[Rfam]
RNA sequence: GGCGCCGCCGUCUCUGGUUCGCUUGGUGCAGGUCGGGACCGCCCGGAUCCGCCCACGGACUGGCCGGAUCCCGCCUUGCACCAACUGAAUCGGAGCCGGAGGGCGAC
Numbered sequence: 001g002g003c004g005c006c007g008c009c010g011u012c013u014c015u016g017g018u019u020c021g022c023u024u025g026g027u028g029c030a031g032g033u034c035g036g037g038a039c040c041g042c043c044c045g046g047a048u049c050c051g052c053c054c055a056c057g058g059a060c061u062g063g064c065c066g067g068a069u070c071c072c073g074c075c076u077u078g079c080a081c082c083a084a085c086u087g088a089a090u091c092g093g094a095g096c097c098g099g100a101g102g103g104c105g106a107c
Base pairs, nucleotide, nucleotide: 013094014093017090018089019088020087023084024083025082026081027080028079029078030077031076032075034073035072036071037070038069039067040066
RNA: MIR168 microRNA precursor family
Organism: Musa troglodytarum